[Rfam]
RNA sequence: UAAAAAGCAGGGCCCUUUUGCCUUUUUGUGAAGGGGGCUCUCGUAAAUUUCAGGAAAAUUACUUGCAUUAUUUUUGGGUGAACCUCUGUACUUUUUAAUGACUUGAAGGUUCAGUAAAUGAUGCCACAUUA
Numbered sequence: 001u002a003a004a005a006a007g008c009a010g011g012g013c014c015c016u017u018u019u020g021c022c023u024u025u026u027u028g029u030g031a032a033g034g035g036g037g038c039u040c041u042c043g044u045a046a047a048u049u050u051c052a053g054g055a056a057a058a059u060u061a062c063u064u065g066c067a068u069u070a071u072u073u074u075u076g077g078g079u080g081a082a083c084c085u086c087u088g089u090a091c092u093u094u095u096u097a098a099u100g101a102c103u104u105g106a107a108g109g110u111u112c113a114g115u116a117a118a119u120g121a122u123g124c125c126a127c128a129u130u131a
Stems, first nucleotide, its partner, number of pairs: 005050003011039002014036006066123007079113007
This 131-nucleotide RNA sequence from Carpinus fangiana belongs to the Rfam family "Small nucleolar RNA snoR74". The match comes from Rfam's covariance-model search (104 bits). Rfam classes the family as an H/ACA-box small nucleolar RNA. Rfam 15.1 lists 1,404 matches to the family in 223 species.